Rfam assigns this 36-nucleotide RNA from an Actinomycetota bacterium to the family "abiF RNA". Rfam 15.1 lists 282 matches to the family in 274 species.
[Rfam]
RNA sequence: CCCGCCAAGCCUCUCAACGAUGCUCACUCGGCGGGU
Numbered sequence: 001c002c003c004g005c006c007a008a009g010c011c012u013c014u015c016a017a018c019g020a021u022g023c024u025c026a027c028u029c030g031g032c033g034g035g036u
Stems, first nucleotide, its partner, number of pairs: 001035006008024003